[Rfam]
A member of the RNA family "Bacterial RNase P class A" from Thermohalobacter berrensis, 344 nucleotides long.

RNA sequence: CGAGUAAGUCAGACAGUCGCAUGCAUUAUGCAUGAGGAAAGUCCGAGCUCCAUAGGGCAGGAUGCUGGGUAAUACCCAGUGGGGGCGACCCUAAGGAAAGUGCAACAGAAAUAUACCGCCACAUGUCUCAUGUGGUAAGGGUGGAAAGGUGAGGUAAGAGCUCACCAGCAGCUAGGCGACUAGUUGGCUCUGUAAACCCCAUCCGGAGCAAGACCAAGUUAGGGACAUAAAAAGUAGUGGCCCGCUACUGUCCCAUAUGGUAGGUCGCUGGAGCCUAUUGGUAACAAUAGGCCUAGAUAGAUGACUGUCUAAUACAGAACUCGGCUUAUAGACUUGCUCGUGUU
Numbered sequence: 001c002g003a004g005u006a007a008g009u010c011a012g013a014c015a016g017u018c019g020c021a022u023g024c025a026u027u028a029u030g031c032a033u034g035a036g037g038a039a040a041g042u043c044c045g046a047g048c049u050c051c052a053u054a055g056g057g058c059a060g061g062a063u064g065c066u067g068g069g070u071a072a073u074a075c076c077c078a079g080u081g082g083g084g085g086c087g088a089c090c091c092u093a094a095g096g097a098a099a100g101u102g103c104a105a106c107a108g109a110a111a112u113a114u115a116c117c118g119c120c121a122c123a124u125g126u127c128u129c130a131u132g133u134g135g136u137a138a139g140g141g142u143g144g145a146a147a148g149g150u151g152a153g154g155u156a157a158g159a160g161c162u163c164a165c166c167a168g169c170a171g172c173u174a175g176g177c178g179a180c181u182a183g184u185u186g187g188c189u190c191u192g193u194a195a196a197c198c199c200c201a202u203c204c205g206g207a208g209c210a211a212g213a214c215c216a217a218g219u220u221a222g223g224g225a226c227a228u229a230a231a232a233a234g235u236a237g238u239g240g241c242c243c244g245c246u247a248c249u250g251u252c253c254c255a256u257a258u259g260g261u262a263g264g265u266c267g268c269u270g271g272a273g274c275c276u277a278u279u280g281g282u283a284a285c286a287a288u289a290g291g292c293c294u295a296g297a298u299a300g301a302u303g304a305c306u307g308u309c310u311a312a313u314a315c316a317g318a319a320c321u322c323g324g325c326u327u328a329u330a331g332a333c334u335u336g337c338u339c340g341u342g343u344u
Stems, first nucleotide, its partner, number of pairs: 001340010011329001012309007020034006039327003043324005048208004055243004060204005065079005080094001081092004095199002100197002102193003116140002118136008148166006168188001169186007212266004222254006234248005273292008

Gene Ontology terms of the family: tRNA processing, ribonuclease P activity and dimeric ribonuclease P complex.